[Rfam]
RNA sequence: GCGUUUGCCAAGGGGUGCCGUUACCGGCUGAGAUCCACUGCGUGGGAACCCUUAAACCUGAUCCGGAUAAUACCGGCGUAGGGAUGGUUACAAUCAAGCCU
Numbered sequence: 001g002c003g004u005u006u007g008c009c010a011a012g013g014g015g016u017g018c019c020g021u022u023a024c025c026g027g028c029u030g031a032g033a034u035c036c037a038c039u040g041c042g043u044g045g046g047a048a049c050c051c052u053u054a055a056a057c058c059u060g061a062u063c064c065g066g067a068u069a070a071u072a073c074c075g076g077c078g079u080a081g082g083g084a085u086g087g088u089u090a091c092a093a094u095c096a097a098g099c100c101u
Stems, first nucleotide, its partner, number of pairs: 007088004011052004016046001017028004035045004057082004063076004
A member of the RNA family "TPP riboswitch aptamer (THI element)" from Marisediminitalea lipolytica, 101 nucleotides long. NCBI's taxonomy places the organism under Bacteria, Pseudomonadati, Alteromonadales, Alteromonadaceae, Marisediminitalea. The match comes from Rfam's covariance-model search (77 bits).